[Rfam]
RNA sequence: UUAUAGGACGCUUUAGCUAUUGAACUGUUUCACCCUGUCUGUCAAAGAACAAAUUGUUCUCUGUCAGAGAGUGGCAGAACAGUUCAAAAGCUACAGCAUCCUAUAAC
Numbered sequence: 001u002u003a004u005a006g007g008a009c010g011c012u013u014u015a016g017c018u019a020u021u022g023a024a025c026u027g028u029u030u031c032a033c034c035c036u037g038u039c040u041g042u043c044a045a046a047g048a049a050c051a052a053a054u055u056g057u058u059c060u061c062u063g064u065c066a067g068a069g070a071g072u073g074g075c076a077g078a079a080c081a082g083u084u085c086a087a088a089a090g091c092u093a094c095a096g097c098a099u100c101c102u103a104u105a106a107c
Stems, first nucleotide, its partner, number of pairs: 001106006011096002014093005020087009029068001030066001032064002048058004